[Rfam]
This 73-nucleotide sequence from Xenopus laevis belongs to the Rfam family "Small nucleolar RNA SNORD20".
The base pairs follow the family's consensus structure.
Rfam classes the family as a C/D-box small nucleolar RNA.
Gene Ontology terms of the family: RNA processing and nucleolus.
The source organism's lineage runs through Eukaryota, Craniata, Euteleostomi, Pipoidea and Xenopus.
Rfam's curators write: U20 is a C/D box small nucleolar RNA that is encoded in intron 11 of the nucleolin gene in human, mouse and rat.
For this family Rfam cites "U20, a novel small nucleolar RNA, is encoded in an intron of the nucleolin gene in mammals" (Nicoloso et al., Mol Cell Biol, 1994).
RNA sequence: UGGAAGUGAUAAGCUUUAUUAUAACAAUUUUAUGAUGAAAAGAAUUUCUCUAGAUAGUAAAGUACUGAUCCAG
Numbered sequence: 001u002g003g004a005a006g007u008g009a010u011a012a013g014c015u016u017u018a019u020u021a022u023a024a025c026a027a028u029u030u031u032a033u034g035a036u037g038a039a040a041a042g043a044a045u046u047u048c049u050c051u052a053g054a055u056a057g058u059a060a061a062g063u064a065c066u067g068a069u070c071c072a073g
Base pairs, nucleotide, nucleotide: 001072002071003070004069